[Rfam]
RNA sequence: AGAUGCCAGGGGCAAAAGGUCUAAAUCCACAUGAGCUUGCUCAUAAGUGGAUGAAAGACCUUGGGCCCCGCCCCAAUAUGAGCCUAAAAGUAGGAUGACAAUCCCACGAUAUGCGAAUAAUGGGGAGGAUUGUGGAAGUGCAACGCACGGAACAAUCCGUAGGCAUCA
Dot-bracket structure: .((((((..((((...((((((..(((((((((((....)))))..))))))...))))))...))))...((((.(((..((.(.......((((....)).)).....).))..))).))))..(((((((....((((...))))...)))))))...)))))).
Numbered sequence: 001a002g003a004u005g006c007c008a009g010g011g012g013c014a015a016a017a018g019g020u021c022u023a024a025a026u027c028c029a030c031a032u033g034a035g036c037u038u039g040c041u042c043a044u045a046a047g048u049g050g051a052u053g054a055a056a057g058a059c060c061u062u063g064g065g066c067c068c069c070g071c072c073c074c075a076a077u078a079u080g081a082g083c084c085u086a087a088a089a090g091u092a093g094g095a096u097g098a099c100a101a102u103c104c105c106a107c108g109a110u111a112u113g114c115g116a117a118u119a120a121u122g123g124g125g126a127g128g129a130u131u132g133u134g135g136a137a138g139u140g141c142a143a144c145g146c147a148c149g150g151a152a153c154a155a156u157c158c159g160u161a162g163g164c165a166u167c168a
Stems, first nucleotide, its partner, number of pairs: 002167006010068004017061006025052006031044005072124004077119003082114002085111001093105002095102002127158007138148004